[Rfam]
RNA: OmrA-B family
Organism: Chania multitudinisentens
RNA sequence: CCCAGAGGUAUUAAUUGGUGAGAGAUCAACAUACACGGUGUGUUGAGGCCAUUUAAAAUUGCACCAACCUACGCGGAUGCGUAGGUUUUUUUU
Number, nucleotide and partner (000 for none) at each position: 001c000002c000003c000004a000005g000006a000007g000008g000009u000010a000011u000012u000013a000014a000015u000016u066017g065018g064019u063020g062021a000022g000023a000024g000025a000026u000027c000028a044029a043030c042031a041032u040033a039034c000035a000036c000037g000038g000039u033040g032041u031042g030043u029044u028045g000046a000047g000048g000049c000050c000051a000052u000053u000054u000055a000056a000057a000058a000059u000060u000061g000062c020063a019064c018065c017066a016067a086068c085069c084070u083071a082072c081073g080074c079075g000076g000077a000078u000079g074080c073081g072082u071083a070084g069085g068086u067087u000088u000089u000090u000091u000092u000093u000